[Rfam]
RNA: Small nucleolar RNA SNORA84
RNA sequence: GCCUGGUGGUUCCUGGAGACAGCUGCACUGUGCUGAUCUGUAGGUUUUUCUUGUCAGGCAGACAUUAACUCUGUGAUUUCAUGCAUGGGGACUGUAUGUCUAAGCAGGCUCCAUAGCCCGGUUGCAGAGACAGUG
Numbered sequence: 001g002c003c004u005g006g007u008g009g010u011u012c013c014u015g016g017a018g019a020c021a022g023c024u025g026c027a028c029u030g031u032g033c034u035g036a037u038c039u040g041u042a043g044g045u046u047u048u049u050c051u052u053g054u055c056a057g058g059c060a061g062a063c064a065u066u067a068a069c070u071c072u073g074u075g076a077u078u079u080c081a082u083g084c085a086u087g088g089g090g091a092c093u094g095u096a097u098g099u100c101u102a103a104g105c106a107g108g109c110u111c112c113a114u115a116g117c118c119c120g121g122u123u124g125c126a127g128a129g130a131c132a133g134u135g
Base pairs, nucleotide, nucleotide: 001059002058003057004056008048012044013043014042015041017039020035021034022033023032071127073125074124075123076122077121078120083117084116085114086113087112088111090109092107093106094105095104